[Rfam]
RNA sequence: ACUGGUCCUCGGUGGUGGCUUACGGAUAACGAUGCCGUUGGCUUCGAUCGAAGAUCCAU
Numbered sequence: 001a002c003u004g005g006u007c008c009u010c011g012g013u014g015g016u017g018g019c020u021u022a023c024g025g026a027u028a029a030c031g032a033u034g035c036c037g038u039u040g041g042c043u044u045c046g047a048u049c050g051a052a053g054a055u056c057c058a059u
Stems, first nucleotide, its partner, number of pairs: 001059001004056004009051005017043004022038004